Rfam assigns this 100-nucleotide sequence from Vibrio ziniensis to the family "Purine riboswitch aptamer". The source organism's lineage runs through Bacteria, Pseudomonadati, Gammaproteobacteria, Vibrionaceae and Vibrio. Its family is annotated with purine nucleobase biosynthetic process in the Gene Ontology. A search with the family's covariance model found it, with a score of 79 bits. About the family: Riboswitches are metabolite binding domains within certain messenger RNAs that serve as precision sensors for their corresponding targets.

RNA sequence: AAAAUGUAGUAUAAGUUGCUUCGUAUAACCCCACUGAUACGGUGUGGGGGUCUCUACCAGAAUCCGUAAAAUUCUGAUUACGAAGAGUUAAGCGAAUAGG
Number, nucleotide and partner (000 for none) at each position: 001a000002a000003a000004a000005u000006g000007u000008a000009g000010u000011a000012u000013a000014a000015g000016u000017u000018g000019c085020u084021u083022c082023g081024u080025a079026u000027a000028a000029c049030c048031c047032c046033a045034c044035u000036g000037a000038u000039a000040c000041g000042g000043u000044g034045u033046g032047g031048g030049g029050g000051u000052c000053u000054c000055u000056a000057c000058c076059a075060g074061a073062a072063u071064c000065c000066g000067u000068a000069a000070a000071a063072u062073u061074c060075u059076g058077a000078u000079u025080a024081c023082g022083a021084a020085g019086a000087g000088u000089u000090a000091a000092g000093c000094g000095a000096a000097u000098a000099g000100g000